[Rfam]
RNA: U1 spliceosomal RNA
Organism: Callithrix jacchus
RNA sequence: ACACUUAAUGGCAAGAGAGAUACCAUGGUCAUGAAGGUGGUUUUCCUAGGGCGAGGCUCAUCGAUGCAAGCUGGAUGCGCUGACCCCUGCAAUUUCCCCAAAUGUGAGAAACUCAACUGGCAUAAUUUGUGGUAGUGGGGGACUGUGUUUGGACUUUCCCCUG
Numbered sequence: 001a002c003a004c005u006u007a008a009u010g011g012c013a014a015g016a017g018a019g020a021u022a023c024c025a026u027g028g029u030c031a032u033g034a035a036g037g038u039g040g041u042u043u044u045c046c047u048a049g050g051g052c053g054a055g056g057c058u059c060a061u062c063g064a065u066g067c068a069a070g071c072u073g074g075a076u077g078c079g080c081u082g083a084c085c086c087c088u089g090c091a092a093u094u095u096c097c098c099c100a101a102a103u104g105u106g107a108g109a110a111a112c113u114c115a116a117c118u119g120g121c122a123u124a125a126u127u128u129g130u131g132g133u134a135g136u137g138g139g140g141g142a143c144u145g146u147g148u149u150u151g152g153a154c155u156u157u158c159c160c161c162u163g
Stems, first nucleotide, its partner, number of pairs: 011121002014118001015047001017045004022041005048088004053084001055081003059077002061074002092113001093111003098106001137162006145154002